[Rfam]
RNA sequence: UAUAAAAAUAGGCAAAACUAUUGAAAGAUAGUGACGCAAAGCUAUAGGGCCUCUUUAACGUGGCAGCCAGUUGCACAA
Numbered sequence: 001u002a003u004a005a006a007a008a009u010a011g012g013c014a015a016a017a018c019u020a021u022u023g024a025a026a027g028a029u030a031g032u033g034a035c036g037c038a039a040a041g042c043u044a045u046a047g048g049g050c051c052u053c054u055u056u057a058a059c060g061u062g063g064c065a066g067c068c069a070g071u072u073g074c075a076c077a078a
Stems, first nucleotide, its partner, number of pairs: 012037002017032006040072004047068002049064003053060001

This 78-nucleotide sequence from Coprobacillus cateniformis belongs to the Rfam family "c-di-GMP-I riboswitch aptamer". The base pairs follow the family's consensus structure, which is taken from published work.